[Rfam]
RNA sequence: GGGUUUUCUGCCGGGGGAGCGGUGGAGUCAGUGCCGCUCGUCUCCCUCGGCGGUCUUGAUCAAGCUAAGGAGCACGCGUGCCAGGGAUGGCGCAUG
Numbered sequence: 001g002g003g004u005u006u007u008c009u010g011c012c013g014g015g016g017g018a019g020c021g022g023u024g025g026a027g028u029c030a031g032u033g034c035c036g037c038u039c040g041u042c043u044c045c046c047u048c049g050g051c052g053g054u055c056u057u058g059a060u061c062a063a064g065c066u067a068a069g070g071a072g073c074a075c076g077c078g079u080g081c082c083a084g085g086g087a088u089g090g091c092g093c094a095u096g
Base pairs, nucleotide, nucleotide: 008053009052010051011050012049013048014047015046016045017044018043019042020040021039022037023036024035025034066074078093079092080091081090082089
The record is a 96-nucleotide RNA from Xanthomonas albilineans, which matches "Xanthomonas sRNA sX7" in Rfam. By type it is a small RNA. The family's consensus secondary structure was predicted with RNAalifold. A search with the family's covariance model found it, with a score of 57 bits.